Shown here is a 209-nucleotide sequence from Pyrobaculum neutrophilum, a member of the family "RNaseP truncated form". Rfam classes the family as a ribozyme. Taxonomically the source falls in Pyrobaculum neutrophilum (Archaea, Thermoproteati, Thermoproteota, Thermoproteales). The base pairs follow the family's consensus structure. Rfam's curators write: Pyrobaculum and Caldivirga RNase P RNAs are reported as the smallest naturally occurring form of RNase P. They function as trans-acting precursor tRNA-processing ribozymes. This variant of RNase P, have a loss of the specificity domain, which suggests altered substrate specificity. Its family is annotated with ribonuclease P activity and tRNA processing in the Gene Ontology.
RNA sequence: GGGGCGCCGAGGGGACGGGGGGGCUCCCGGAGACGGGGCCCCUCUGGAACCUCCCGCACCGCCCGCGGAGGGCGCCGGCGGGCCGCCGCAAGGCGGGGGUAAAAACCAGCCGGCGCUGCGGCCCCCAAGCAGGGCCUGUGAGGCCGCGGCGAGGCCCGGGUAGGGGGCUAGAUCGAUACCCCGACAGAAGCGGGGGUAUGCGGCGCCCC
Numbered sequence: 001g002g003g004g005c006g007c008c009g010a011g012g013g014g015a016c017g018g019g020g021g022g023g024c025u026c027c028c029g030g031a032g033a034c035g036g037g038g039c040c041c042c043u044c045u046g047g048a049a050c051c052u053c054c055c056g057c058a059c060c061g062c063c064c065g066c067g068g069a070g071g072g073c074g075c076c077g078g079c080g081g082g083c084c085g086c087c088g089c090a091a092g093g094c095g096g097g098g099g100u101a102a103a104a105a106c107c108a109g110c111c112g113g114c115g116c117u118g119c120g121g122c123c124c125c126c127a128a129g130c131a132g133g134g135c136c137u138g139u140g141a142g143g144c145c146g147c148g149g150c151g152a153g154g155c156c157c158g159g160g161u162a163g164g165g166g167g168c169u170a171g172a173u174c175g176a177u178a179c180c181c182c183g184a185c186a187g188a189a190g191c192g193g194g195g196g197u198a199u200g201c202g203g204c205g206c207c208c209c
Base pairs, nucleotide, nucleotide: 001209002208003207004206005205006204007203008202009201011180012179018044019043020042021041022040025038026037027036028035029034059121060120061119062118071117072116073115074114075113076112077111078110079109083096084095085094086093087092097107098106124165125164126163132157133156134155135154136153142150